[Rfam]
RNA sequence: UCCUUUGCGUCAUGUUCGUCGGCGUUGCCGACACAUGCCCAGGCAGCCGAGACCUUCGAGGCUGCAAGCGCGGAACACCGCGCUGGUCAUUUCUUCCUACGGGCGCACCUCGCCCAUCCACCCACAAGGGACCUCUCCCUUGCGGCCGG
Numbered sequence: 001u002c003c004u005u006u007g008c009g010u011c012a013u014g015u016u017c018g019u020c021g022g023c024g025u026u027g028c029c030g031a032c033a034c035a036u037g038c039c040c041a042g043g044c045a046g047c048c049g050a051g052a053c054c055u056u057c058g059a060g061g062c063u064g065c066a067a068g069c070g071c072g073g074a075a076c077a078c079c080g081c082g083c084u085g086g087u088c089a090u091u092u093c094u095u096c097c098u099a100c101g102g103g104c105g106c107a108c109c110u111c112g113c114c115c116a117u118c119c120a121c122c123c124a125c126a127a128g129g130g131a132c133c134u135c136u137c138c139c140u141u142g143c144g145g146c147c148g149g
Stems, first nucleotide, its partner, number of pairs: 011037005018032006043065006051088004067084007117149002125142007